[Rfam]
RNA sequence: CGGGGAAAGAAGACCCUGUUGAGCUUGACUCUAGUCCGACUUUGUGGAACGACUUGAGGGGUGUAGCAUAGGUGGGAGCUUCGGCGAUCUUGAAAUACCACUACCCUCAGUGUCGUUUUACUUAUUCCGUCGAGUUGAGACGCAUGCUUGCAUGUGUUUUUGCCUUAAGGCGCCUUCGCGCGCUGAUCAAUGCGGAAGACAUAGUCAGGUGGGGAGUUUGGCUGGGGCGGCACAUCUGUGAAACAAUAGCGCAGGUGUCCUAAGGCAAGCUCAAUGAGAACAGAAAUCUCAUGUUGACCAAAAGGGGAAAAGCUUGCUUGAUUUUGAUUCUCAGUACGAAUACAAACUGUGAAAGCAUGGCCUAUCGAUCCUUUAGGACUGAGAAACUUUCAGCUAGAGGUGUCAGAAAAGUUACCACAGGGAUAACUGGCUUGUGGCAGCCAAGCGUUCAUAGCGACGUUGCUUUUUGAUCCUUCGAUGUCGGCUCUUCCUAUCAUUGGGACGCAGAAGUCUCAAAGUGUCGGAUUGUUCACCCGCCAAUAGGGAACGUGAGCUGGGUUUAGACCGUCGUGAGACAGGUUAGUUUUACCCUA
Number, nucleotide and partner (000 for none) at each position: 001c000002g000003g592004g591005g590006a000007a587008a586009g000010a000011a000012g000013a000014c000015c421016c420017u419018g418019u000020u417021g416022a413023g412024c411025u410026u409027g000028a217029c216030u215031c214032u000033a000034g000035u209036c208037c000038g206039a205040c204041u203042u000043u000044g121045u120046g119047g118048a117049a116050c115051g114052a113053c112054u110055u109056g108057a107058g106059g105060g104061g000062u000063g000064u000065a000066g000067c000068a000069u000070a000071g102072g101073u100074g099075g098076g000077a000078g085079c084080u000081u000082c000083g000084g079085c078086g000087a000088u000089c000090u000091u000092g000093a000094a000095a000096u000097a000098c075099c074100a073101c072102u071103a000104c060105c059106c058107u057108c056109a055110g054111u000112g053113u052114c051115g050116u049117u048118u047119u046120a045121c044122u000123u000124a000125u197126u196127c195128c194129g193130u000131c000132g000133a000134g000135u190136u189137g188138a187139g000140a000141c000142g000143c154144a153145u152146g151147c000148u000149u000150g000151c146152a145153u144154g143155u000156g000157u000158u000159u000160u000161u000162g000163c000164c000165u000166u000167a000168a000169g184170g183171c182172g181173c180174c000175u000176u000177c000178g000179c000180g173181c172182g171183c170184u169185g000186a000187u138188c137189a136190a135191u000192g000193c129194g128195g127196a126197a125198g000199a000200c000201a000202u000203a041204g040205u039206c038207a000208g036209g035210u000211g000212g000213g000214g031215a030216g029217u028218u000219u000220g233221g231222c230223u229224g000225g000226g000227g000228c000229g223230g222231c221232a000233c220234a256235u255236c254237u253238g252239u251240g000241a000242a000243a000244c000245a000246a000247u000248a000249g000250c000251g239252c238253a237254g236255g235256u234257g000258u000259c360260c359261u000262a000263a000264g000265g317266c316267a315268a314269g313270c312271u297272c296273a000274a292275u291276g290277a289278g288279a287280a000281c000282a000283g000284a000285a000286a000287u279288c278289u277290c276291a275292u274293g000294u000295u000296g272297a271298c307299c306300a000301a000302a000303a000304g000305g000306g299307g298308a000309a000310a000311a000312g270313c269314u268315u267316g266317c265318u000319u000320g000321a000322u346323u345324u344325u000326g000327a341328u340329u339330c338331u000332c000333a000334g000335u000336a000337c000338g330339a329340a328341u327342a000343c000344a324345a323346a322347c000348u357349g356350u355351g000352a000353a000354a000355g350356c349357a348358u000359g260360g259361c000362c000363u000364a000365u000366c000367g000368a000369u000370c000371c399372u398373u397374u396375a395376g394377g000378a000379c393380u392381g391382a390383g000384a000385a000386a000387c000388u000389u000390u382391c381392a380393g379394c376395u375396a374397g373398a372399g371400g000401u000402g000403u000404c000405a000406g000407a000408a000409a026410a025411g024412u023413u022414a000415c000416c021417a020418c018419a017420g016421g015422g000423a000424u000425a000426a000427c000428u000429g000430g471431c000432u469433u000434g468435u000436g464437g463438c462439a461440g460441c459442c000443a000444a000445g455446c454447g000448u000449u000450c000451a000452u000453a000454g446455c445456g000457a000458c000459g441460u440461u439462g438463c437464u436465u000466u000467u000468u434469g432470a000471u430472c000473c000474u000475u000476c000477g000478a000479u000480g000481u000482c557483g555484g554485c553486u552487c549488u546489u545490c544491c543492u542493a000494u000495c520496a519497u000498u515499g514500g513501g512502a511503c510504g000505c000506a000507g000508a000509a000510g503511u502512c501513u500514c499515a498516a000517a000518g000519u496520g495521u000522c536523g535524g534525a000526u532527u000528g000529u000530u000531c000532a526533c000534c524535c523536g522537c000538c000539a000540a000541u000542a492543g491544g490545g489546a488547a000548c000549g487550u000551g000552a486553g485554c484555u483556g000557g482558g000559u000560u000561u000562a000563g581564a580565c579566c578567g576568u575569c574570g000571u000572g000573a000574g569575a568576c567577a000578g566579g565580u564581u563582a000583g000584u000585u000586u008587u007588a000589c000590c005591c004592u003593a000

Eukaryotic large subunit ribosomal RNA: a 593-nucleotide part of an RNA from Cyclospora cayetanensis. The match comes from Rfam's covariance-model search (3210 bits).